A member of the RNA family "Antisense RNA which regulates isiA expression" from Alkalinema sp. CACIAM 70d, 175 nucleotides long. The organism belongs to Alkalinema, within Bacteria.
[Rfam]
RNA sequence: GAUAUCCAAAAAUGGUCAGGGGAUCUAGCGUAGGAGCCGUCACAGCCCGCACCGUUUGGGUUGCCGUGUCAUACAGCCCCCCAUUCAUGGCAUACCAGGCAAAUAGCAACGCCCCUGUACCUAGGAACAACAAAUGGUGGCCCAAAAUUAAGCCUAACUGUUUAGGAUCUUCCCA
Numbered sequence: 001g002a003u004a005u006c007c008a009a010a011a012a013u014g015g016u017c018a019g020g021g022g023a024u025c026u027a028g029c030g031u032a033g034g035a036g037c038c039g040u041c042a043c044a045g046c047c048c049g050c051a052c053c054g055u056u057u058g059g060g061u062u063g064c065c066g067u068g069u070c071a072u073a074c075a076g077c078c079c080c081c082c083a084u085u086c087a088u089g090g091c092a093u094a095c096c097a098g099g100c101a102a103a104u105a106g107c108a109a110c111g112c113c114c115c116u117g118u119a120c121c122u123a124g125g126a127a128c129a130a131c132a133a134a135u136g137g138u139g140g141c142c143c144a145a146a147a148u149u150a151a152g153c154c155u156a157a158c159u160g161u162u163u164a165g166g167a168u169c170u171u172c173c174c175a
Stems, first nucleotide, its partner, number of pairs: 134171001136169003141166002144163002